[Rfam]
RNA sequence: AAUUUUGUUUGUAGGAACAAAAGGAAGUUGAUCUAUUGUACACCUGAUAAAUACCAAUACGCAAUGGUA
Numbered sequence: 001a002a003u004u005u006u007g008u009u010u011g012u013a014g015g016a017a018c019a020a021a022a023g024g025a026a027g028u029u030g031a032u033c034u035a036u037u038g039u040a041c042a043c044c045u046g047a048u049a050a051a052u053a054c055c056a057a058u059a060c061g062c063a064a065u066g067g068u069a
Base pairs, nucleotide, nucleotide: 003022004021006019007018008017009016010015044067045066052059053058

A member of the RNA family "Plastid-clpP 5UTR RNA" from Ziziphus jujuba, 69 nucleotides long. The family's consensus secondary structure was predicted with LocARNA. The source organism's lineage runs through Eukaryota, Euphyllophyta, Magnoliopsida, Paliureae and Ziziphus jujuba. About the family: Plastid clpP is a non-coding RNA (ncRNA) recognised in plastids. It was found in the prime untranslated region (5UTR) of a protease complex subunit (clpP) in plastids, suggesting a posible cis-regulatory function. It is annotated as a cis-regulatory element. It scores 70 bits against the family's covariance model.